[Rfam]
RNA: Bacterial large subunit ribosomal RNA, nucleotides 856 to 1445
RNA sequence: GAAAUAGCUUUAGGGCUAGCGUCUUAAGAAAUGUAUAUCGGGGGUAGAGCACUGAAUGCUCUAGGGGCCGUAUAGGUUACCGAAAGCUAUCAAACUUCGAAUACCGAUAUAUGAAGUAAGGCAGUCAGACUGCGAGUGAUAAGAUCCGUAGUCAAGAGGGAAAAAGCCCAGAUCAACAGCUAAGGUCCCAAAAUGUAUGUUAAGUGGAAAAGGAUGUGAAAUUGCACAGACAACCAGGAUGUUGGCUUAGAAGCAGCCAUACAUUAAAAGAGUGCGUAAUAGCUCACUGGUCGAGUGGUUUUGCGCCGAAAAUUACCGGGGCUCAAACAUACUACCGAAGCUUUGAACGUGUGAGAUUUUACUAAGAACUUAAGUAAAAUCCAAGAGAAGACAUAUUAAAAUCUAACAGAUAAAAAAGAAGAAAAAAACAAGAAACAAAGACAAAUAAACAAAGAAAAAAACAGACAAAUAAAAAUACAGUAAUAAAGAAGAAUAAAAAGUAAUAUAAAACGAAAGAUUUUAAUUAAAUUUCUCAAAGAAAAAACAUACUAAAUGAAGCUUAAGAGUUUAGUAAAAUCUCACACGUGGUA
Numbered sequence: 001g002a003a004a005u006a007g008c009u010u011u012a013g014g015g016c017u018a019g020c021g022u023c024u025u026a027a028g029a030a031a032u033g034u035a036u037a038u039c040g041g042g043g044g045u046a047g048a049g050c051a052c053u054g055a056a057u058g059c060u061c062u063a064g065g066g067g068c069c070g071u072a073u074a075g076g077u078u079a080c081c082g083a084a085a086g087c088u089a090u091c092a093a094a095c096u097u098c099g100a101a102u103a104c105c106g107a108u109a110u111a112u113g114a115a116g117u118a119a120g121g122c123a124g125u126c127a128g129a130c131u132g133c134g135a136g137u138g139a140u141a142a143g144a145u146c147c148g149u150a151g152u153c154a155a156g157a158g159g160g161a162a163a164a165a166g167c168c169c170a171g172a173u174c175a176a177c178a179g180c181u182a183a184g185g186u187c188c189c190a191a192a193a194u195g196u197a198u199g200u201u202a203a204g205u206g207g208a209a210a211a212g213g214a215u216g217u218g219a220a221a222u223u224g225c226a227c228a229g230a231c232a233a234c235c236a237g238g239a240u241g242u243u244g245g246c247u248u249a250g251a252a253g254c255a256g257c258c259a260u261a262c263a264u265u266a267a268a269a270g271a272g273u274g275c276g277u278a279a280u281a282g283c284u285c286a287c288u289g290g291u292c293g294a295g296u297g298g299u300u301u302u303g304c305g306c307c308g309a310a311a312a313u314u315a316c317c318g319g320g321g322c323u324c325a326a327a328c329a330u331a332c333u334a335c336c337g338a339a340g341c342u343u344u345g346a347a348c349g350u351g352u353g354a355g356a357u358u359u360u361a362c363u364a365a366g367a368a369c370u371u372a373a374g375u376a377a378a379a380u381c382c383a384a385g386a387g388a389a390g391a392c393a394u395a396u397u398a399a400a401a402u403c404u405a406a407c408a409g410a411u412a413a414a415a416a417a418g419a420a421g422a423a424a425a426a427a428a429c430a431a432g433a434a435a436c437a438a439a440g441a442c443a444a445a446u447a448a449a450c451a452a453a454g455a456a457a458a459a460a461a462c463a464g465a466c467a468a469a470u471a472a473a474a475a476u477a478c479a480g481u482a483a484u485a486a487a488g489a490a491g492a493a494u495a496a497a498a499a500g501u502a503a504u505a506u507a508a509a510a511c512g513a514a515a516g517a518u519u520u521u522a523a524u525u526a527a528a529u530u531u532c533u534c535a536a537a538g539a540a541a542a543a544a545c546a547u548a549c550u551a552a553a554u555g556a557a558g559c560u561u562a563a564g565a566g567u568u569u570a571g572u573a574a575a576a577u578c579u580c581a582c583a584c585g586u587g588g589u590a
Stems, first nucleotide, its partner, number of pairs: 005018005020124001021122006032115001033112009047098001048096002053092003058087003064081002066078004128153007136145002158169003173346004178342003184336003193333001195332006212307002216304010233291005239264003244258003265269001270285001274283002347586020